This 65-nucleotide sequence from Prodigiosinella confusarubida belongs to the Rfam family "Enterobacterial sRNA STnc240". Pairs were carried over by alignment from the consensus structure, which was predicted with WAR. Lineage of the source: Bacteria > Pseudomonadati > Enterobacterales > Pectobacteriaceae > Prodigiosinella.
[Rfam]
RNA sequence: CUUCUCUGGGGCAAAAUACGCGCCCUACAAGUAACCGACGUUGAUAGCGUCGGUUAUUUUUUUGU
Numbered sequence: 001c002u003u004c005u006c007u008g009g010g011g012c013a014a015a016a017u018a019c020g021c022g023c024c025c026u027a028c029a030a031g032u033a034a035c036c037g038a039c040g041u042u043g044a045u046a047g048c049g050u051c052g053g054u055u056a057u058u059u060u061u062u063u064g065u
Stems, first nucleotide, its partner, number of pairs: 011021002032056009